[Rfam]
RNA sequence: AGCCUAAACUAGUGGUCACGCUGGCAUGGUGAAAAAGAUCCUUGGAAGAUACUGAACCCUACGUUCAGCGUUCUUCCAAGGACCGUACCUCGAAAGGGGUAUGGAUCCCGUAAGGGAUC
Numbered sequence: 001a002g003c004c005u006a007a008a009c010u011a012g013u014g015g016u017c018a019c020g021c022u023g024g025c026a027u028g029g030u031g032a033a034a035a036a037g038a039u040c041c042u043u044g045g046a047a048g049a050u051a052c053u054g055a056a057c058c059c060u061a062c063g064u065u066c067a068g069c070g071u072u073c074u075u076c077c078a079a080g081g082a083c084c085g086u087a088c089c090u091c092g093a094a095a096g097g098g099g100u101a102u103g104g105a106u107c108c109c110g111u112a113a114g115g116g117a118u119c
Base pairs, nucleotide, nucleotide: 002030003029004028009024010023011022012021013020014019039082040081041080042079043078044077045076046075047074048073049072052068053067054066055065056064057063084103085102086101087100088099089098090097091096104119105118106117107116108115109114
Dot-bracket structure: .(((....((((((....))))))...)))........(((((((((((..((((((.....))))))...))))))))))).((((((((....))))))))((((((....))))))
LOOT RNA: a 119-nucleotide RNA sequence.